[Rfam]
RNA sequence: AACCUCCACCGACGUGACACAACAUCCAGCAGCGGUGUUGUGCGACCUGCAGUGUCAGUCGGUGAAGGUU
Numbered sequence: 001a002a003c004c005u006c007c008a009c010c011g012a013c014g015u016g017a018c019a020c021a022a023c024a025u026c027c028a029g030c031a032g033c034g035g036u037g038u039u040g041u042g043c044g045a046c047c048u049g050c051a052g053u054g055u056c057a058g059u060c061g062g063u064g065a066a067g068g069u070u
Stems, first nucleotide, its partner, number of pairs: 001070005007064001009062005021039006044056003
bZIP non canonical Hac1/Xbp1 intron: a 70-nucleotide RNA sequence from Microdochium bolleyi. The base pairs follow the family's consensus structure, which was predicted with RNAfold. A reference for the family is Hooks and Griffiths-Jones (2011), "Conserved RNA structures in the non-canonical Hac1/Xbp1 intron", RNA Biol. The match comes from Rfam's covariance-model search (49 bits). Rfam's curators write: bZIP intron RNA is a non-canonical intron that was first reported in HAC1 gene in yeast and XBP1 gene in Metazoa.